Rfam assigns this 75-nucleotide RNA sequence from Cyprinus carpio to the family "mir-27 microRNA precursor family".
Gene Ontology terms of the family: RISC complex and miRNA-mediated post-transcriptional gene silencing.
[Rfam]
RNA sequence: GAGGUGCAGGACUUAGCUCUCUCUGUGAACAGAUCUCGGAUAUCCUAUGUUCACAGUGGCUAAGUUCCGCUCCUC
Numbered sequence: 001g002a003g004g005u006g007c008a009g010g011a012c013u014u015a016g017c018u019c020u021c022u023c024u025g026u027g028a029a030c031a032g033a034u035c036u037c038g039g040a041u042a043u044c045c046u047a048u049g050u051u052c053a054c055a056g057u058g059g060c061u062a063a064g065u066u067c068c069g070c071u072c073c074u075c
Stems, first nucleotide, its partner, number of pairs: 009067010025054007
The sequence is in the family's curated seed alignment. Taxonomically the source falls in Cyprinus (Eukaryota, Deuterostomia, Otophysi, Cypriniphysae).